[Rfam]
RNA sequence: GUGAAGCUGAUGAAGGAGACAGUAAACAAGGCAAAAGCAAAUACAGAGAAGGAAUGCACUAGCUGAGAGCAUACCUAUUUGUUUCUUGUUGAAUAACACUCCUUCGGCUCUGUUUCGAACGCCGAUAAGGUGAGUAGGUGCAGACGUAAGCAGGCGUUAACUGUAAAAAGCGGAAGCAGCGGAUAUGCUUCAAUCAGGGUGGUACCACGGGUGUAAGACUCGUCCCUCGU
Numbered sequence: 001g002u003g004a005a006g007c008u009g010a011u012g013a014a015g016g017a018g019a020c021a022g023u024a025a026a027c028a029a030g031g032c033a034a035a036a037g038c039a040a041a042u043a044c045a046g047a048g049a050a051g052g053a054a055u056g057c058a059c060u061a062g063c064u065g066a067g068a069g070c071a072u073a074c075c076u077a078u079u080u081g082u083u084u085c086u087u088g089u090u091g092a093a094u095a096a097c098a099c100u101c102c103u104u105c106g107g108c109u110c111u112g113u114u115u116c117g118a119a120c121g122c123c124g125a126u127a128a129g130g131u132g133a134g135u136a137g138g139u140g141c142a143g144a145c146g147u148a149a150g151c152a153g154g155c156g157u158u159a160a161c162u163g164u165a166a167a168a169a170g171c172g173g174a175a176g177c178a179g180c181g182g183a184u185a186u187g188c189u190u191c192a193a194u195c196a197g198g199g200u201g202g203u204a205c206c207a208c209g210g211g212u213g214u215a216a217g218a219c220u221c222g223u224c225c226c227u228c229g230u
Stems, first nucleotide, its partner, number of pairs: 007107002015102004025090006039079002052074001054072004110143004115138002145156003173191006196227004207223005
Shown here is a 230-nucleotide RNA sequence from Alteribacillus persepolensis, a member of the family "T-box leader".
The family has 48 seed sequences and 19,395 matches in Rfam 15.1.
About the family: Uncharged tRNA acts as the effector for transcription antitermination of genes in the T-box leader family. T-boxes are found upstream of many aminoacyl-tRNA synthetase genes and some amino acid biosynthetic genes usually in Gram-positive bacteria. The anticodon of a specific tRNA base pairs to a specifier sequence within the T-box motif, and the NCCA acceptor tail of the tRNA base pairs to a conserved bulge in the T-box antiterminator hairpin.
The family's consensus secondary structure is taken from published work.
On this family, see Gerdeman et al., J Mol Biol 2003: "Solution structure of the Bacillus subtilis T-box antiterminator RNA: seven nucleotide bulge characterized by stacking and flexibility".
It scores 111 bits against the family's covariance model.